[Rfam]
RNA sequence: CAUAGUUUAACGAUUGCGUUCCGUAUAUGUUGCGAAUAGGGCGCAAUGUUUCUACCAGGCACCAAGAAUGUCUGACUAUGGGAGGGGUAAAUGAAGGC
Numbered sequence: 001c002a003u004a005g006u007u008u009a010a011c012g013a014u015u016g017c018g019u020u021c022c023g024u025a026u027a028u029g030u031u032g033c034g035a036a037u038a039g040g041g042c043g044c045a046a047u048g049u050u051u052c053u054a055c056c057a058g059g060c061a062c063c064a065a066g067a068a069u070g071u072c073u074g075a076c077u078a079u080g081g082g083a084g085g086g087g088u089a090a091a092u093g094a095a096g097g098c
Stems, first nucleotide, its partner, number of pairs: 019083007030046005056074006

This 98-nucleotide RNA sequence from Bdellovibrio sp. NC01 belongs to the Rfam family "Purine riboswitch aptamer". A search with the family's covariance model found it, with a score of 56 bits. Gene Ontology term of the family: purine nucleobase biosynthetic process. The base pairs follow the family's consensus structure, which is taken from published work.